This 93-nucleotide sequence from Streptomyces scabiei belongs to the Rfam family "Streptomyces RNA 3202".
Identified by deep sequencing of transcriptome at the end of exponential growth phase. Appears smaller on northern blot than sequencing transcript. This indicates processing step.
The organism belongs to Streptomyces scabiei, within Bacteria.
The sequence is in the family's curated seed alignment.
It is annotated as a small RNA.

RNA sequence: CCAAGUCCCGACGCUCUCCCCCCAGCGCCGGGACUCUCCGAGAGCCGGGCCUCGGCGCCUCCCCCCCCCCUGGCGCCGAGGCCCGGCUUCUUU
Numbered sequence: 001c002c003a004a005g006u007c008c009c010g011a012c013g014c015u016c017u018c019c020c021c022c023c024a025g026c027g028c029c030g031g032g033a034c035u036c037u038c039c040g041a042g043a044g045c046c047g048g049g050c051c052u053c054g055g056c057g058c059c060u061c062c063c064c065c066c067c068c069c070c071u072g073g074c075g076c077c078g079a080g081g082c083c084c085g086g087c088u089u090c091u092u093u
Stems, first nucleotide, its partner, number of pairs: 005034006012027003042089010053078005060073002